[Rfam]
RNA sequence: GGUUGGGCAGUGAUGAUGCUAUUUAUGUGGACUAGAGUUUCUGAUUCGUGGCCAUUCAUUUGCGCCAGUAGUUGAAGACUAACCCUUGGCUGUCUGAGCUCAACC
Numbered sequence: 001g002g003u004u005g006g007g008c009a010g011u012g013a014u015g016a017u018g019c020u021a022u023u024u025a026u027g028u029g030g031a032c033u034a035g036a037g038u039u040u041c042u043g044a045u046u047c048g049u050g051g052c053c054a055u056u057c058a059u060u061u062g063c064g065c066c067a068g069u070a071g072u073u074g075a076a077g078a079c080u081a082a083c084c085c086u087u088g089g090c091u092g093u094c095u096g097a098g099c100u101c102a103a104c105c
Stems, first nucleotide, its partner, number of pairs: 001105008038077004045070001047068001
RNA: Small nucleolar RNA Z157/R69/R10